Shown here is an 83-nucleotide RNA from Ornithinibacillus caprae, a member of the family "Group II catalytic intron D1-D4-1". The pairing is the family consensus, mapped onto this sequence. The match comes from Rfam's covariance-model search (56 bits). Its family is annotated with Group II intron splicing in the Gene Ontology. NCBI's taxonomy places the organism under Bacteria, Bacillati, Bacilli, Bacillaceae, Ornithinibacillus.
RNA sequence: AAGCGUACUCGAAACGGGUGCGUUGAACGACAGACGUCAGCAGAGGUCAUAGUACUUAAUAGCUUAAGAUGUUAGGGAAGGAC
Numbered sequence: 001a002a003g004c005g006u007a008c009u010c011g012a013a014a015c016g017g018g019u020g021c022g023u024u025g026a027a028c029g030a031c032a033g034a035c036g037u038c039a040g041c042a043g044a045g046g047u048c049a050u051a052g053u054a055c056u057u058a059a060u061a062g063c064u065u066a067a068g069a070u071g072u073u074a075g076g077g078a079a080g081g082a083c
Stems, first nucleotide, its partner, number of pairs: 001024002004022007037044002046083003055076006